[Rfam]
RNA sequence: GCGCUGGUUUAGCUCAGUGGUUACUUCGUUUGCAAUGGUCGCCAACAUACAUCCCUUCGCGGGAUCGAACCGCGGGCGCUGUCCAGUGCUUUU
Numbered sequence: 001g002c003g004c005u006g007g008u009u010u011a012g013c014u015c016a017g018u019g020g021u022u023a024c025u026u027c028g029u030u031u032g033c034a035a036u037g038g039u040c041g042c043c044a045a046c047a048u049a050c051a052u053c054c055c056u057u058c059g060c061g062g063g064a065u066c067g068a069a070c071c072g073c074g075g076g077c078g079c080u081g082u083c084c085a086g087u088g089c090u091u092u093u
Base pairs, nucleotide, nucleotide: 002088003087004086005085006084007083012077013076014075015074017073018072019071020070025069026068027067028066
A member of the RNA family "Vault RNA" from Neogobius melanostomus, 93 nucleotides long. The match comes from Rfam's covariance-model search (69 bits). The family's RNA type in Rfam is non-coding RNA gene. Lineage of the source: Eukaryota > Bilateria > Gobiaria > Benthophilinae > Neogobius. Rfam describes the family as follows. This family of RNAs are found as part of the enigmatic vault ribonucleoprotein complex. The complex consists of a major vault protein (MVP), two minor vault proteins (VPARP and TEP1), and several small untranslated RNA molecules. It has been suggested that the vault complex is involved in drug resistance. The family's consensus secondary structure is taken from published work.